[Rfam]
RNA: mir-1419 microRNA precursor family
RNA sequence: CGAUGGCAUCACACCCAGUGCUGGAGAUGUCAUCACGUGCUACCGCGUUCCAUGAUGUCAUCCUCCAGCACCACGCGUGUCCAUCG
Dot-bracket structure: (((.((...((......(((((((.((((.(((((.................))))).)))).).))))))......)).)).)))